[Rfam]
RNA sequence: ACCCGAUGAAGAAGCAAUCCCAAAAGAUAGGAAGUGCCGUAUGACACUUUACACAACAGCUAGCGU
Numbered sequence: 001a002c003c004c005g006a007u008g009a010a011g012a013a014g015c016a017a018u019c020c021c022a023a024a025a026g027a028u029a030g031g032a033a034g035u036g037c038c039g040u041a042u043g044a045c046a047c048u049u050u051a052c053a054c055a056a057c058a059g060c061u062a063g064c065g066u
Stems, first nucleotide, its partner, number of pairs: 014060002031050006
Annotation: Rfam assigns this 66-nucleotide sequence to the family "Small nucleolar RNA U49". Its family is annotated with RNA processing and nucleolus in the Gene Ontology. The sequence is in the family's curated seed alignment.